mir-210 microRNA precursor family: a 98-nucleotide sequence from Ladona fulva. The source organism's lineage runs through Eukaryota, Opisthokonta, Pancrustacea, Dicondylia and Ladona. Pairs were carried over by alignment from the consensus structure, which was predicted with WAR.

[Rfam]
RNA sequence: GAGAAUUCCACUGCAGCUGCUGGACACUGCACAAGAUUAGACUAUUGAAAACUCUUGUGCGUGUGACAGCGGCUAUUGUGGGAAAUCACAGUCAACGC
Numbered sequence: 001g002a003g004a005a006u007u008c009c010a011c012u013g014c015a016g017c018u019g020c021u022g023g024a025c026a027c028u029g030c031a032c033a034a035g036a037u038u039a040g041a042c043u044a045u046u047g048a049a050a051a052c053u054c055u056u057g058u059g060c061g062u063g064u065g066a067c068a069g070c071g072g073c074u075a076u077u078g079u080g081g082g083a084a085a086u087c088a089c090a091g092u093c094a095a096c097g098c
Stems, first nucleotide, its partner, number of pairs: 006083006015074008025063002028061006035054002